[Rfam]
RNA: T-box leader
RNA sequence: UUAAAUGCUGUGAUAAGAAAUAGUAAAUAUAUAUAUCUUUUUCAGAGAGUUUCCGCUAGGUGAAAGGAAAUAUUGAUAAUAUAUUGAACACAUCUUUGAGCAAUACACCGAAAAAUAAUUUUAGUAGGCUGUAUCGGAUUCCUUGCACCCGUUAUCGUGCUAGAGUAUUAGCAAAUUUAACUUGCAGUACUUGAUGAGGUUAAUGUCGCGAGGCAUUAAUAAAAAUAGGUGGAACCACGUGAGUUAACUCCCGUCCUAUGG
Numbered sequence: 001u002u003a004a005a006u007g008c009u010g011u012g013a014u015a016a017g018a019a020a021u022a023g024u025a026a027a028u029a030u031a032u033a034u035a036u037c038u039u040u041u042u043c044a045g046a047g048a049g050u051u052u053c054c055g056c057u058a059g060g061u062g063a064a065a066g067g068a069a070a071u072a073u074u075g076a077u078a079a080u081a082u083a084u085u086g087a088a089c090a091c092a093u094c095u096u097u098g099a100g101c102a103a104u105a106c107a108c109c110g111a112a113a114a115a116u117a118a119u120u121u122u123a124g125u126a127g128g129c130u131g132u133a134u135c136g137g138a139u140u141c142c143u144u145g146c147a148c149c150c151g152u153u154a155u156c157g158u159g160c161u162a163g164a165g166u167a168u169u170a171g172c173a174a175a176u177u178u179a180a181c182u183u184g185c186a187g188u189a190c191u192u193g194a195u196g197a198g199g200u201u202a203a204u205g206u207c208g209c210g211a212g213g214c215a216u217u218a219a220u221a222a223a224a225a226u227a228g229g230u231g232g233a234a235c236c237a238c239g240u241g242a243g244u245u246a247a248c249u250c251c252c253g254u255c256c257u258a259u260g261g
Stems, first nucleotide, its partner, number of pairs: 007101002015096004026085006040072001049071006104133004109128001135151003199220007226258004237254003241250001